[Rfam]
RNA sequence: UAUAUCCUUCGGGGUCGGGUGAAAUUCCCAACCGGCGGUGAUGAAGCUGCUGCUUCUAAGCCCGCGAGCUCUUUGCGAGCAGGAUUUGGUGAGAAUCCAAAGCCGACAGUGAAAGUCUGGAUGGGAGAAGGAUGGU
Numbered sequence: 001u002a003u004a005u006c007c008u009u010c011g012g013g014g015u016c017g018g019g020u021g022a023a024a025u026u027c028c029c030a031a032c033c034g035g036c037g038g039u040g041a042u043g044a045a046g047c048u049g050c051u052g053c054u055u056c057u058a059a060g061c062c063c064g065c066g067a068g069c070u071c072u073u074u075g076c077g078a079g080c081a082g083g084a085u086u087u088g089g090u091g092a093g094a095a096u097c098c099a100a101a102g103c104c105g106a107c108a109g110u111g112a113a114a115g116u117c118u119g120g121a122u123g124g125g126a127g128a129a130g131g132a133u134g135g136u
Stems, first nucleotide, its partner, number of pairs: 003134008017029003031116002033105002035065004060103002068080003085101005107119003
RNA: FMN riboswitch aptamer (RFN element)
Organism: Ureibacillus terrenus